[Rfam]
A member of the RNA family "OmrA-B family" from Kosakonia cowanii, 82 nucleotides long. NCBI's taxonomy places the organism under Bacteria, Gammaproteobacteria, Enterobacteriaceae, Kosakonia, Kosakonia cowanii. For this family Rfam cites "Novel small RNA-encoding genes in the intergenic regions of Escherichia coli" (Argaman et al., Curr Biol, 2001).
RNA sequence: CCCAGAGGUAUUGAUAGGUGAGCGCAACGCUACGUUGCACACUCGACUUACACCGACCUGCGCAGAUGCGCAGGUUUUUUUU
Numbered sequence: 001c002c003c004a005g006a007g008g009u010a011u012u013g014a015u016a017g018g019u020g021a022g023c024g025c026a027a028c029g030c031u032a033c034g035u036u037g038c039a040c041a042c043u044c045g046a047c048u049u050a051c052a053c054c055g056a057c058c059u060g061c062g063c064a065g066a067u068g069c070g071c072a073g074g075u076u077u078u079u080u081u082u
Base pairs, nucleotide, nucleotide: 017054018053019052020051024038025037026036027035028034056075057074058073059072060071061070062069063068